[Rfam]
RNA sequence: CAGCCUGCGAAUUGCUGGUUGUGCCGUUCAAUAAUUCAACGCUUAAAAAAGGCGCAACCCUGUUUUCCCUGGUGUUGGCGCAGUAUUCGCGCACCCCGGCCUGGCC
Numbered sequence: 001c002a003g004c005c006u007g008c009g010a011a012u013u014g015c016u017g018g019u020u021g022u023g024c025c026g027u028u029c030a031a032u033a034a035u036u037c038a039a040c041g042c043u044u045a046a047a048a049a050a051g052g053c054g055c056a057a058c059c060c061u062g063u064u065u066u067c068c069c070u071g072g073u074g075u076u077g078g079c080g081c082a083g084u085a086u087u088c089g090c091g092c093a094c095c096c097c098g099g100c101c102u103g104g105c106c
Stems, first nucleotide, its partner, number of pairs: 018058008071095003078092004

This 106-nucleotide RNA from Cedecea neteri belongs to the Rfam family "ArcZ RNA". Its family is annotated with regulation of translation and protein binding in the Gene Ontology. The base pairs follow the family's consensus structure, which was predicted with PFOLD. Rfam's curators write: This RNA was discovered in E. coli during a large scale screen. SraH expression is highly abundant in stationary phase, but low levels could be detected in exponentially growing cells as well. A reference for the family is Argaman et al. (2001), "Novel small RNA-encoding genes in the intergenic regions of Escherichia coli", Curr Biol.